The record is a 219-nucleotide RNA sequence from Clostridium thermosuccinogenes, which matches "c-di-AMP riboswitch aptamer (ydaO/yuaA leader)" in Rfam. The source organism's lineage runs through Bacteria, Bacillati, Bacillota, Eubacteriales and Clostridium. The match comes from Rfam's covariance-model search (67 bits).
[Rfam]
RNA sequence: CAUGGAAAACAGCCGAAUCUCCACAAUGGAGUACGGAGGAUAUUUUACCUGGGGUGAAUCCGUUCCUGAUAUGGGAUGCAAGCGGCAGUAUAUAAUAGAUUUCUGCUUUAUUAGGCAUGCAUCAUUGCUUAGCAUUUAUGCCGCUUCCAAGGUCAGGGAUGGUAGGGUACCUCAUCCCGAACCCGUCAACUAACUCCGGAGGCGAAAGGGGGAAAAAAU
Numbered sequence: 001c002a003u004g005g006a007a008a009a010c011a012g013c014c015g016a017a018u019c020u021c022c023a024c025a026a027u028g029g030a031g032u033a034c035g036g037a038g039g040a041u042a043u044u045u046u047a048c049c050u051g052g053g054g055u056g057a058a059u060c061c062g063u064u065c066c067u068g069a070u071a072u073g074g075g076a077u078g079c080a081a082g083c084g085g086c087a088g089u090a091u092a093u094a095a096u097a098g099a100u101u102u103c104u105g106c107u108u109u110a111u112u113a114g115g116c117a118u119g120c121a122u123c124a125u126u127g128c129u130u131a132g133c134a135u136u137u138a139u140g141c142c143g144c145u146u147c148c149a150a151g152g153u154c155a156g157g158g159a160u161g162g163u164a165g166g167g168u169a170c171c172u173c174a175u176c177c178c179g180a181a182c183c184c185g186u187c188a189a190c191u192a193a194c195u196c197c198g199g200a201g202g203c204g205a206a207a208g209g210g211g212g213a214a215a216a217a218a219u
Base pairs, nucleotide, nucleotide: 012203013202014201019031020030034198035197036196037195038194043051052184053183054182060162061161062160063159064158065157066156067155068154069153070152165178166177167176